SAM/SAH riboswitch aptamer: a 51-nucleotide RNA sequence from Celeribacter indicus. The family's consensus secondary structure is taken from published work. The source organism's lineage runs through Bacteria, Alphaproteobacteria, Rhodobacterales, Roseobacteraceae and Celeribacter.
[Rfam]
RNA sequence: AGGCCCGCACAACGGCUUCCUGGCGUGCGGGAGAAACAAUCCAAUGGAGCA
Numbered sequence: 001a002g003g004c005c006c007g008c009a010c011a012a013c014g015g016c017u018u019c020c021u022g023g024c025g026u027g028c029g030g031g032a033g034a035a036a037c038a039a040u041c042c043a044a045u046g047g048a049g050c051a
Base pairs, nucleotide, nucleotide: 004031005030006029007028008027009026010025013022014021015050016049017048019047020046